[Rfam]
RNA: gabT RNA
Organism: Pseudomonas fluorescens
RNA sequence: AGUGGCCGGGAAAGCUGUGGCAGUCGAUCAUCGCAUGCUGCCGUAGUUGCCUCCCCGCCACG
Numbered sequence: 001a002g003u004g005g006c007c008g009g010g011a012a013a014g015c016u017g018u019g020g021c022a023g024u025c026g027a028u029c030a031u032c033g034c035a036u037g038c039u040g041c042c043g044u045a046g047u048u049g050c051c052u053c054c055c056c057g058c059c060a061c062g
Base pairs, nucleotide, nucleotide: 002061003060004059005058006057013048014047015046016045017044018043019042020041021040022039023038024037025033026032